The family of this 75-nucleotide RNA sequence from Xanthomonas albilineans is "Xanthomonas sRNA sX9". On this family, see Schmidtke et al., Nucleic Acids Res 2011: "Genome-wide transcriptome analysis of the plant pathogen Xanthomonas identifies sRNAs with putative virulence functions". The family has 16 seed sequences and 309 matches in Rfam 15.1. The organism belongs to Xanthomonas albilineans, within Bacteria. Rfam classes the family as a small RNA.
Nucleotides: 075
Base pairs, nucleotide, nucleotide: 002015003014005012006011019034020033021032022031024029048071049070050069051068052067
Number, partner (000 for none) and nucleotide at each position: 001000a002015u003014g004000c005012a006011c007000c008000u009000a010000u011006g012005u013000a014003c015002a016000c017000c018000g019034c020033a021032g022031u023000u024029c025000c026000u027000g028000c029024g030000c031022g032021c033020u034019g035000u036000c037000c038000g039000c040000a041000c042000c043000c044000a045000c046000c047000c048071g049070a050069c051068a052067g053000c054000g055000a056000c057000u058000c059000g060000c061000g062000a063000c064000g065000u066000u067052u068051u069050g070049u071048c072000a073000a074000c075000c